The record is a 156-nucleotide RNA from Streptomyces kanasensis, which matches "c-di-AMP riboswitch aptamer (ydaO/yuaA leader)" in Rfam. Pairs were carried over by alignment from the consensus structure. Lineage of the source: Bacteria > Actinomycetes > Kitasatosporales > Streptomycetaceae > Streptomyces.
[Rfam]
Nucleotides: 156
Base pairs, nucleotide, nucleotide: 007143009141010140014028015027029138030137031136032135033134034133039074075123076122077121083100084099085098086097103117104116105115106114
Number, partner (000 for none) and nucleotide at each position: 001000a002000c003000u004000c005000c006000g007143c008000a009141c010140c011000c012000a013000c014028u015027c016000a017000c018000g019000c020000a021000c022000g023000g024000c025000a026000g027015g028014a029138g030137c031136g032135g033134g034133g035000g036000a037000a038000c039074c040000a041000g042000g043000u044000a045000a046000g047000u048000c049000g050000c051000c052000g053000g054000u055000c056000c057000g058000g059000u060000c061000c062000c063000c064000g065000g066000a067000g068000c069000g070000g071000c072000u073000c074039g075123g076122g077121g078000u079000g080000g081000a082000g083100u084099g085098g086097u087000g088000g089000c090000c091000g092000c093000g094000g095000c096000c097086a098085c099084c100083g101000c102000c103117g104116g105115a106114c107000a108000u109000c110000u111000c112000c113000c114106g115105u116104c117103c118000g119000a120000a121077c122076c123075c124000g125000a126000c127000a128000g129000c130000u131000c132000a133034c134033c135032u136031c137030g138029c139000a140010g141009g142000c143007g144000c145000c146000g147000g148000a149000g150000a151000g152000g153000a154000a155000c156000g
Its family is annotated with regulation of gene expression and cyclic-di-AMP binding in the Gene Ontology.